Rfam assigns this 135-nucleotide RNA sequence from Chloroceryle aenea to the family "Small Cajal body specific RNA 3". From the family's description: scaRNAs are a specific class of small nuclear RNAs which localise to the Cajal bodies and guide the modification of RNA polymerase II transcribed spliceosomal RNAs U1, U2, U4, U5 and U12. The family has 23 seed sequences and 642 matches in Rfam 15.1. The organism belongs to Chloroceryle, within Eukaryota. Pairs were carried over by alignment from the consensus structure, which was predicted with RNAalifold. Its family is annotated with Cajal body, RNA processing and nucleolus in the Gene Ontology.

[Rfam]
RNA sequence: GCUGGGAACAGUUGGGACAAGUCGUGGGCAAAAGACUUAUGUUUUGUCCACCGUGGCAGUCUUCCUAGAGUAAAGUGGAGGUCUCUGUCUGCUUUAGGAGAGCCAGCUAAACCAGAUCGUUCCCCUCCAUACACA
Numbered sequence: 001g002c003u004g005g006g007a008a009c010a011g012u013u014g015g016g017a018c019a020a021g022u023c024g025u026g027g028g029c030a031a032a033a034g035a036c037u038u039a040u041g042u043u044u045u046g047u048c049c050a051c052c053g054u055g056g057c058a059g060u061c062u063u064c065c066u067a068g069a070g071u072a073a074a075g076u077g078g079a080g081g082u083c084u085c086u087g088u089c090u091g092c093u094u095u096a097g098g099a100g101a102g103c104c105a106g107c108u109a110a111a112c113c114a115g116a117u118c119g120u121u122c123c124c125c126u127c128c129a130u131a132c133a134c135a
Stems, first nucleotide, its partner, number of pairs: 004065003008060002011057002024051006034043003077128005085119001087117003091113001093111005